[Rfam]
RNA sequence: UCUGACGAGGAGGCUUUUGGCUCGGGUUAUAUGGACGCUAGCAGGGUAUAAGACGAGCGAAAAGCUUUUUGGUUGGAGG
Numbered sequence: 001u002c003u004g005a006c007g008a009g010g011a012g013g014c015u016u017u018u019g020g021c022u023c024g025g026g027u028u029a030u031a032u033g034g035a036c037g038c039u040a041g042c043a044g045g046g047u048a049u050a051a052g053a054c055g056a057g058c059g060a061a062a063a064g065c066u067u068u069u070u071g072g073u074u075g076g077a078g079g
Base pairs, nucleotide, nucleotide: 003075004074005073006072008070009069011067012066013065014064015063016062017061018060020058023055024054027051028050029049030048031047032046